[Rfam]
RNA sequence: CUGCACGUCGCACCCCGGGCUUCUCUGAAAAUAUUUCAAUGACGAAGAAAGCCCCAAUGCUCGUGCUAAAGCUGCGCCAUUUAGUGUUGCAGGUUUGCUUUGAUUCAACAGCUUAUUUGUGUCAAAAUAAUGGCUAAAUCU
Numbered sequence: 001c002u003g004c005a006c007g008u009c010g011c012a013c014c015c016c017g018g019g020c021u022u023c024u025c026u027g028a029a030a031a032u033a034u035u036u037c038a039a040u041g042a043c044g045a046a047g048a049a050a051g052c053c054c055c056a057a058u059g060c061u062c063g064u065g066c067u068a069a070a071g072c073u074g075c076g077c078c079a080u081u082u083a084g085u086g087u088u089g090c091a092g093g094u095u096u097g098c099u100u101u102g103a104u105u106c107a108a109c110a111g112c113u114u115a116u117u118u119g120u121g122u123c124a125a126a127a128u129a130a131u132g133g134c135u136a137a138a139u140c141u
Stems, first nucleotide, its partner, number of pairs: 003066005010060002017054005022048002024045002076134006085124002088121006097112003
Dot-bracket structure: ..(((((..((.....(((((((((..................)).)).)))))....)).))))).........((((((...((.((((((...(((..........)))...)))))).))....)))))).......